[Rfam]
RNA: 6S / SsrS RNA
Organism: Dethiobacter sp.
RNA sequence: AUAACCCUGCUGUGUUUGUGAACCGCCGUAUACAGUUUUGAGCUAACACUUUGAACUCGGGAGCUUGGUCUCUGCCUGCAGCGCAUACGCCUCCUUUUGCAGAGGACAUGUAAAACUGGCAGGAGGGCACCCACCUGUGGAGAGAGCAGUUCAAAACUAACGGUACCUCACGGCAUUGUGGGGUUUUU
Numbered sequence: 001a002u003a004a005c006c007c008u009g010c011u012g013u014g015u016u017u018g019u020g021a022a023c024c025g026c027c028g029u030a031u032a033c034a035g036u037u038u039u040g041a042g043c044u045a046a047c048a049c050u051u052u053g054a055a056c057u058c059g060g061g062a063g064c065u066u067g068g069u070c071u072c073u074g075c076c077u078g079c080a081g082c083g084c085a086u087a088c089g090c091c092u093c094c095u096u097u098u099g100c101a102g103a104g105g106a107c108a109u110g111u112a113a114a115a116c117u118g119g120c121a122g123g124a125g126g127g128c129a130c131c132c133a134c135c136u137g138u139g140g141a142g143a144g145a146g147c148a149g150u151u152c153a154a155a156a157c158u159a160a161c162g163g164u165a166c167c168u169c170a171c172g173g174c175a176u177u178g179u180g181g182g183g184u185u186u187u188u
Stems, first nucleotide, its partner, number of pairs: 003185008012176004017172003034158004039153006059132003063128004070122001073121004078116001085109002090105004